[Rfam]
RNA sequence: AGGUGCGGUGGCAUGUGCCUGUAGUCCCAGCUACCGGGGAGGCUGAGCCUGGCAGAUCGCUUGAGCCCAGGAGUUCUGGGCUGCAGGGCACUGUGCCAAGCGGGCGUCCAAGCUAAGGCAGCCAUCAAUAUGGUGACCCCCGGGGAGCUGUGGGACACCAGGUUGGCUAAGGAGGGGUGAACUGGCCCAGGUCGGAGACGGAGCAGGUCAAAGCUCCCGUGGCGGUCAGUAGCAGGAACGCGCCUGUGAACAGGCCCUGCAGCGUAGCCUGGGCAAUUUUUUUUUUUU
Numbered sequence: 001a002g003g004u005g006c007g008g009u010g011g012c013a014u015g016u017g018c019c020u021g022u023a024g025u026c027c028c029a030g031c032u033a034c035c036g037g038g039g040a041g042g043c044u045g046a047g048c049c050u051g052g053c054a055g056a057u058c059g060c061u062u063g064a065g066c067c068c069a070g071g072a073g074u075u076c077u078g079g080g081c082u083g084c085a086g087g088g089c090a091c092u093g094u095g096c097c098a099a100g101c102g103g104g105c106g107u108c109c110a111a112g113c114u115a116a117g118g119c120a121g122c123c124a125u126c127a128a129u130a131u132g133g134u135g136a137c138c139c140c141c142g143g144g145g146a147g148c149u150g151u152g153g154g155a156c157a158c159c160a161g162g163u164u165g166g167c168u169a170a171g172g173a174g175g176g177g178u179g180a181a182c183u184g185g186c187c188c189a190g191g192u193c194g195g196a197g198a199c200g201g202a203g204c205a206g207g208u209c210a211a212a213g214c215u216c217c218c219g220u221g222g223c224g225g226u227c228a229g230u231a232g233c234a235g236g237a238a239c240g241c242g243c244c245u246g247u248g249a250a251c252a253g254g255c256c257c258u259g260c261a262g263c264g265u266a267g268c269c270u271g272g273g274c275a276a277u278u279u280u281u282u283u284u285u286u287u288u
Stems, first nucleotide, its partner, number of pairs: 001020007025040003052288001054286001056285001059282001065274007076267003080263009091253004096248001100247008108236002112233004117227003121223005126165004131160005137154003141150003167171001174217005183210005192201003
Dot-bracket structure: (((((((......)))))))....(((..........)))...........(.(.(..(.....(((((((....(((.(((((((((..((((.(...((((((((((..((((.(((.(((((((((.(((((.(((.(((....))).))).))))).)))).(...)..(((((....(((((....(((....)))....)))))..))))).))))).)))..)))).))...))))))))).)))).))))))))).)))))))))).......)..)).)
Shown here is a 288-nucleotide RNA sequence from Piprites chloris, a member of the family "Metazoan signal recognition particle RNA". Pairs were carried over by alignment from the consensus structure, which is taken from published work. From the family's description: The signal recognition particle (SRP) is a universally conserved ribonucleoprotein. It is involved in the co-translational targeting of proteins to membranes. The organism belongs to Piprites, within Eukaryota.